[Rfam]
RNA sequence: CGUUGUCGGCCAUCUACUCCUCCCAGAUGCGAUGCCGGCCAAAGCGAACUCACCUCCUCCCGGGUUCGCCUCAAUAGAGCCCGCUGCACCUCCUCCCGCAGCGGGCUUUUUUU
Number, nucleotide and partner (000 for none) at each position: 001c000002g000003u000004u000005g000006u000007c037008g036009g035010c000011c029012a028013u027014c000015u000016a000017c000018u000019c000020c000021u000022c000023c000024c000025a000026g000027a013028u012029g011030c000031g000032a000033u000034g000035c009036c008037g007038g000039c000040c000041a000042a071043a000044g069045c068046g067047a066048a065049c064050u000051c000052a000053c000054c000055u000056c000057c000058u000059c000060c000061c000062g000063g000064g049065u048066u047067c046068g045069c044070c000071u042072c000073a000074a000075u000076a000077g108078a107079g106080c105081c104082c103083g102084c101085u100086g099087c098088a000089c000090c000091u000092c000093c000094u000095c000096c000097c000098g087099c086100a085101g084102c083103g082104g081105g080106c079107u078108u077109u000110u000111u000112u000113u000
Rfam assigns this 113-nucleotide RNA from Allomesorhizobium alhagi to the family "Alphaproteobacterial ar14". It scores 73 bits against the family's covariance model. Pairs were carried over by alignment from the consensus structure. Smr14C2 was renamed NfeR1 (Nodule Formation Efficiency RNA) highly expressed in salt stress and during the symbiotic interaction on legume roots.